[Rfam]
RNA sequence: UGUAAGAAAGGGAAAACCCAUCGAAAGAUGGGGGCUCAAAGCCACGGGUCUAAAGCAACUUGCUAUGAUAGCCGGGCUGCCGUG
Dot-bracket structure: ...........((...((((((....))))))...))..((((.((((((....(((...)))...)))..)))))))......

Annotation: A member of the RNA family "c-di-GMP-I riboswitch aptamer" from Pelotomaculum isophthalicicum, 84 nucleotides long. About the family: GEMM was predicted in a large-scale screen for bacterial structured RNA regulatory elements. The source organism's lineage runs through Bacteria, Eubacteriales, Desulfotomaculaceae, Pelotomaculum and Pelotomaculum isophthalicicum.